[Rfam]
RNA sequence: UAUGGAUCUGUGAUGUUAUAAUUAAACUGCGUUAUCUAUCUGAUACUUCCUCAGGGAAUUGAAGAUAACUAUAAUUUGCUGAGAUCUGUU
Numbered sequence: 001u002a003u004g005g006a007u008c009u010g011u012g013a014u015g016u017u018a019u020a021a022u023u024a025a026a027c028u029g030c031g032u033u034a035u036c037u038a039u040c041u042g043a044u045a046c047u048u049c050c051u052c053a054g055g056g057a058a059u060u061g062a063a064g065a066u067a068a069c070u071a072u073a074a075u076u077u078g079c080u081g082a083g084a085u086c087u088g089u090u
Stems, first nucleotide, its partner, number of pairs: 002089006
Small nucleolar RNA snoR27: a 90-nucleotide sequence from Lupinus angustifolius. The family has 6 seed sequences and 649 matches in Rfam 15.1. The family's RNA type in Rfam is C/D-box small nucleolar RNA. Lineage of the source: Eukaryota > Viridiplantae > Streptophytina > Mesangiospermae > Lupinus. The family is grouped with related families in Rfam's "snR68 clan". The family's consensus secondary structure was predicted with WAR.